This 147-nucleotide sequence from Cryptosporangium phraense belongs to the Rfam family "c-di-AMP riboswitch aptamer (ydaO/yuaA leader)".
The organism belongs to Cryptosporangium, within Bacteria.
[Rfam]
Nucleotides: 147
Stems, first nucleotide, its partner, number of pairs: 002133002005130001010026002028128006038067001068113003076090004093107004
Number, partner (000 for none) and nucleotide at each position: 001000g002133c003132g004000a005130u006000g007000a008000g009000a010026c011025c012000c013000g014000a015000a016000c017000u018000u019000c020000c021000g022000g023000c024000a025011g026010g027000a028128g029127c030126g031125g032124g033123g034000g035000a036000c037000c038067c039000a040000c041000u042000u043000u044000c045000c046000g047000g048000c049000g050000u051000c052000g053000c054000a055000g056000u057000u058000c059000g060000a061000c062000g063000c064000c065000u066000c067038g068113g069112g070111g071000u072000g073000a074000a075000g076090c077089c078088a079087c080000c081000u082000a083000u084000a085000g086000c087079g088078u089077g090076g091000c092000c093107g094106g095105g096104c097000c098000g099000a100000c101000u102000c103000a104096g105095c106094c107093c108000g109000a110000a111070c112069c113068c114000g115000a116000c117000a118000g119000c120000u121000c122000a123033c124032c125031u126030c127029g128028u129000a130005g131000g132003c133002g134000u135000g136000g137000a138000g139000a140000g141000g142000g143000u144000c145000g146000g147000a
It scores 66 bits against the family's covariance model.